A member of the RNA family "U1 spliceosomal RNA" from Rotaria magnacalcarata, 163 nucleotides long.
NCBI's taxonomy places the organism under Eukaryota, Opisthokonta, Spiralia, Gnathifera, Rotaria.
The match comes from Rfam's covariance-model search (111 bits).
Clan: U1 clan.
U1 is a small nuclear RNA (snRNA) component of the spliceosome (involved in pre-mRNA splicing).
[Rfam]
RNA sequence: AUACUUACCUGCCACAGGAACUUCCUUGAACAAGAAGAAGGAAGCCCCUGGCGGAGGCUCUGUCAUUGCACUCCGACAGUGCUAAAGCCAGCGAAAGGUUCACAUAGAACCUUCUCGAGUGGAUCAUUUUUCCCAACGGGUCGAGCGUUCGCGCUUGGCCCUG
Number, nucleotide and partner (000 for none) at each position: 001a000002u000003a000004c000005u000006u000007a000008c000009c000010u000011g000012c122013c121014a120015c119016a000017g047018g046019a000020a000021c000022u000023u042024c041025c040026u039027u038028g000029a000030a000031c000032a000033a000034g000035a000036a000037g000038a027039a026040g025041g024042a023043a000044g000045c000046c018047c017048c000049u090050g089051g088052c087053g000054g000055a000056g083057g082058c081059u000060c079061u078062g077063u076064c075065a000066u000067u000068g000069c000070a000071c000072u000073c000074c000075g064076a063077c062078a061079g060080u000081g058082c057083u056084a000085a000086a000087g052088c051089c050090a049091g000092c117093g116094a115095a113096a112097g111098g000099u109100u108101c000102a000103c000104a000105u000106a000107g000108a100109a099110c000111c097112u096113u095114c000115u094116c093117g092118a000119g015120u014121g013122g012123a000124u000125c000126a000127u000128u000129u000130u000131u000132c000133c000134c000135a000136a000137c000138g161139g160140g159141u158142c157143g000144a155145g154146c153147g152148u000149u000150c000151g000152c147153g146154c145155u144156u000157g142158g141159c140160c139161c138162u000163g000